Rfam assigns this 269-nucleotide sequence from Clostridium puniceum to the family "T-box leader".

RNA sequence: GAAAAUUCUAAGAAGAGGAAAAGUAUUUUAAUUGAUUCCUUAAGCGAGCGGGGAAAUGGUGUAAGCCUUGUGGAUAAAUUAUAAUGAAAAGAGCCUUGGAGAAAUCACCUGAAAUUAAGAAGAAGUAAUAGUCAAUAUCUAUAUGUUGAAUUAUUUAUUUUUCAGCUUUGAGUAAGGAGGAUCGCAAAUAAAAUUGCGUUAAAAGUUAAGGGGUAUUUUAUUUACAUAAAAUACAAUUAGAGUGGUACCGCGGAUAAUUCGUCUCUUUG
Numbered sequence: 001g002a003a004a005a006u007u008c009u010a011a012g013a014a015g016a017g018g019a020a021a022a023g024u025a026u027u028u029u030a031a032u033u034g035a036u037u038c039c040u041u042a043a044g045c046g047a048g049c050g051g052g053g054a055a056a057u058g059g060u061g062u063a064a065g066c067c068u069u070g071u072g073g074a075u076a077a078a079u080u081a082u083a084a085u086g087a088a089a090a091g092a093g094c095c096u097u098g099g100a101g102a103a104a105u106c107a108c109c110u111g112a113a114a115u116u117a118a119g120a121a122g123a124a125g126u127a128a129u130a131g132u133c134a135a136u137a138u139c140u141a142u143a144u145g146u147u148g149a150a151u152u153a154u155u156u157a158u159u160u161u162u163c164a165g166c167u168u169u170g171a172g173u174a175a176g177g178a179g180g181a182u183c184g185c186a187a188a189u190a191a192a193a194u195u196g197c198g199u200u201a202a203a204a205g206u207u208a209a210g211g212g213g214u215a216u217u218u219u220a221u222u223u224a225c226a227u228a229a230a231a232u233a234c235a236a237u238u239a240g241a242g243u244g245g246u247a248c249c250g251c252g253g254a255u256a257a258u259u260c261g262u263c264u265c266u267u268u269g
Stems, first nucleotide, its partner, number of pairs: 007102002015097004027084002031080001037074003048071006105181001106179001108177003183198005213234007239266004250262005
Notes:
The match comes from Rfam's covariance-model search (100 bits). Uncharged tRNA acts as the effector for transcription antitermination of genes in the T-box leader family. T-boxes are found upstream of many aminoacyl-tRNA synthetase genes and some amino acid biosynthetic genes usually in Gram-positive bacteria. The anticodon of a specific tRNA base pairs to a specifier sequence within the T-box motif, and the NCCA acceptor tail of the tRNA base pairs to a conserved bulge in the T-box antiterminator hairpin.